[Rfam]
RNA: pemK RNA
RNA sequence: AUAAUGAUACUUCUGUACGCAGCUCGGUGAGAACCACGGAGGGGUUAGAGUCCCAUGG
Number, nucleotide and partner (000 for none) at each position: 001a000002u000003a000004a000005u000006g000007a000008u000009a000010c000011u000012u055013c022014u021015g020016u000017a000018c000019g000020c015021a014022g013023c041024u040025c039026g000027g037028u036029g035030a000031g000032a000033a000034c000035c029036a028037c027038g000039g025040a024041g023042g054043g053044g052045u000046u000047a000048g000049a000050g000051u000052c044053c043054c042055a012056u000057g000058g000